Shown here is a 121-nucleotide RNA from Dielma fastidiosa, a member of the family "Ribosomal protein L20 leader". This family is a putative r-protein leader autoregulatory structure found in B. subtilis and other low-GC Gram-positive bacteria. It is located in the 5' untranslated regions of mRNAs encoding initiation factor 3 followed by ribosomal proteins L35 and L20 (infC-rpmI-rplT). A Rho-independent transcription terminator structure that is probably involved in regulation is included at the 3' end. The family's RNA type in Rfam is cis-regulatory leader. Rfam links the family to the GO term regulation of gene expression. Pairs were carried over by alignment from the consensus structure, which was predicted with CMfinder.

RNA sequence: CGUGGAAAGUAGAAGCACCCCUUCUCACCUGAUGGCUGAAGUCAUAGGUCAAUGCGACGAACGAUCAAAAGAGAUCAAUGUUGAUAGCGGGUGCAGACUGUACCCGCUUUUCUUUUGUACA
Numbered sequence: 001c002g003u004g005g006a007a008a009g010u011a012g013a014a015g016c017a018c019c020c021c022u023u024c025u026c027a028c029c030u031g032a033u034g035g036c037u038g039a040a041g042u043c044a045u046a047g048g049u050c051a052a053u054g055c056g057a058c059g060a061a062c063g064a065u066c067a068a069a070a071g072a073g074a075u076c077a078a079u080g081u082u083g084a085u086a087g088c089g090g091g092u093g094c095a096g097a098c099u100g101u102a103c104c105c106g107c108u109u110u111u112c113u114u115u116u117g118u119a120c121a
Stems, first nucleotide, its partner, number of pairs: 011025005027049003033044004086108010